small nucleolar RNA snoR134: a 151-nucleotide RNA from Cuscuta europaea. The base pairs follow the family's consensus structure, which was predicted with RNAalifold. A search with the family's covariance model found it, with a score of 106 bits. The organism belongs to Cuscuta subgen. Cuscuta, within Eukaryota. Rfam links the family to the GO terms RNA processing and nucleolus.
RNA sequence: CUGCAUGAGCUCUCCCGGGCUCGUCUGAGAUUCAUGUGAAGAAGAAGAAGCCCCAAUGCUCGUGCUAAAUCAAUCCUGCCGCUAGUGUUGCAGUAUAGCCCUUUGUACCUCAUUUUCAUGGCUUUUCUGUGUCAAUUCAACGGCUACACCU
Numbered sequence: 001c002u003g004c005a006u007g008a009g010c011u012c013u014c015c016c017g018g019g020c021u022c023g024u025c026u027g028a029g030a031u032u033c034a035u036g037u038g039a040a041g042a043a044g045a046a047g048a049a050g051c052c053c054c055a056a057u058g059c060u061c062g063u064g065c066u067a068a069a070u071c072a073a074u075c076c077u078g079c080c081g082c083u084a085g086u087g088u089u090g091c092a093g094u095a096u097a098g099c100c101c102u103u104u105g106u107a108c109c110u111c112a113u114u115u116u117c118a119u120g121g122c123u124u125u126u127c128u129g130u131g132u133c134a135a136u137u138c139a140a141c142g143g144c145u146a147c148a149c150c151u
Stems, first nucleotide, its partner, number of pairs: 003065008017053005022047001024045003078144004083139001086134002089131005098122003